Rfam assigns this 111-nucleotide sequence from Medicago truncatula to the family "MIR5284 microRNA precursor family". The family's consensus secondary structure was predicted with RNAalifold.
[Rfam]
RNA sequence: CUGUAAUUUCAAAUUCCUACAUUUUUUGUCCCUCAUUUUACGUGUCAUGUAUGCAAAUUUUACUGACGUGGUGGAAUAAGGGACCAAAAGUGGAAGAAUCUGAAAUUACAA
Numbered sequence: 001c002u003g004u005a006a007u008u009u010c011a012a013a014u015u016c017c018u019a020c021a022u023u024u025u026u027u028g029u030c031c032c033u034c035a036u037u038u039u040a041c042g043u044g045u046c047a048u049g050u051a052u053g054c055a056a057a058u059u060u061u062a063c064u065g066a067c068g069u070g071g072u073g074g075a076a077u078a079a080g081g082g083a084c085c086a087a088a089a090g091u092g093g094a095a096g097a098a099u100c101u102g103a104a105a106u107u108a109c110a111a
Stems, first nucleotide, its partner, number of pairs: 004108008013099004018094001020092007028084006035077005044072007053063001055061002